[Rfam]
A member of the RNA family "GlmZ RNA activator of glmS mRNA" from Morganella morganii, 212 nucleotides long. Rfam classes the family as a small RNA. Clan: Glm clan. For this family Rfam cites "Novel small RNA-encoding genes in the intergenic regions of Escherichia coli" (Argaman et al., Curr Biol, 2001). NCBI's taxonomy places the organism under Bacteria, Gammaproteobacteria, Enterobacterales, Morganella, Morganella morganii subsp. morganii.

RNA sequence: GUAGAUGCUCAUCUCAUUUCUUAUGUUUGCGUAAGCUUCAUAAACCCGGAGAUGACGCAGAGCUAAAUUCGGUGCCUAUUGUCCGGGUUAUCGAUGUAAAAGAUCCCGAAAUCUUUACAUCACCAACAGGACGUAACGUUGAGUGAGGCACCAUCCGUCUGUAGACCUGAUUGUAUUUUAUACACCUAUCGUUUCGCGAUAGGUGUUUUUUU
Dot-bracket structure: ((...(((((((.(..(.(.......(.......)......)......).))))).)))..)).......(((((((...((((........((((((((.............)))))))).......)))).............)))))))....(((....)))...............((((((((((.....))))))))))......